Nucleotides: 120
Base pairs, nucleotide, nucleotide: 003114006111011106013104014103015102016101019056020055021054022053023052026049027048028047029046033043034042035041061086062085063084064083065082066081067080068079069078070077071076087097088096
Number, partner (000 for none) and nucleotide at each position: 001000u002000a003114u004000a005000u006111u007000a008000c009000a010000g011106g012000a013104c014103u015102u016101c017000a018000a019056g020055u021054u022053u023052u024000u025000a026049a027048u028047u029046c030000u031000a032000a033043g034042g035041g036000a037000u038000a039000a040000g041035c042034c043033u044000a045000u046029g047028g048027a049026u050000a051000c052023a053022a054021a055020a056019c057000c058000a059000a060000u061086g062085a063084g064083u065082a066081u067080g068079u069078c070077a071076u072000g073000a074000a075000a076071a077070u078069g079068a080067u081066g082065u083064g084063c085062u086061u087097u088096c089000c090000g091000u092000g093000c094000u095000u096088g097087a098000g099000a100000a101016g102015a103014a104013g105000g106011c107000c108000a109000u110000u111006g112000c113000a114003a115000a116000u117000g118000u119000u120000u
Molybdenum/Tungsten riboswitch aptamer (Moco RNA motif): a 120-nucleotide sequence from Clostridium magnum.
Rfam 15.1 lists 1,248 matches to the family in 836 species.